[Rfam]
RNA sequence: GCCGGUCCUCGGUAGUGGCCCCCUGGGAGCAGGAUGCGACCAGGGGACUUCGAUCGAAGACCGGC
Numbered sequence: 001g002c003c004g005g006u007c008c009u010c011g012g013u014a015g016u017g018g019c020c021c022c023c024u025g026g027g028a029g030c031a032g033g034a035u036g037c038g039a040c041c042a043g044g045g046g047a048c049u050u051c052g053a054u055c056g057a058a059g060a061c062c063g064g065c
Stems, first nucleotide, its partner, number of pairs: 001065007009057005017049002020046007029037002
Actino-pnp RNA: a 65-nucleotide sequence from Actinosynnema mirum. The organism belongs to Actinosynnema mirum, within Bacteria.